[Rfam]
RNA sequence: AACGCCAGACAAAACUGGUUUUCACAAUGAUCGUCCAGAUGGACCUGAAGUCUGAGAUCAUUGUGAAAGCUGAUUUUGUU
Numbered sequence: 001a002a003c004g005c006c007a008g009a010c011a012a013a014a015c016u017g018g019u020u021u022u023c024a025c026a027a028u029g030a031u032c033g034u035c036c037a038g039a040u041g042g043a044c045c046u047g048a049a050g051u052c053u054g055a056g057a058u059c060a061u062u063g064u065g066a067a068a069g070c071u072g073a074u075u076u077u078g079u080u
Base pairs, nucleotide, nucleotide: 009079010078011077012076013075014074016072017071018070019069020068021067022066023065024064025063028060029059030058031057032056

Source information: Rfam assigns this 80-nucleotide RNA sequence from Ixodes scapularis to the family "bantam microRNA precursor family". The sequence is in the family's curated seed alignment. NCBI's taxonomy places the organism under Eukaryota, Arthropoda, Ixodidae, Ixodinae, Ixodes. The family's consensus secondary structure was predicted with RNAalifold.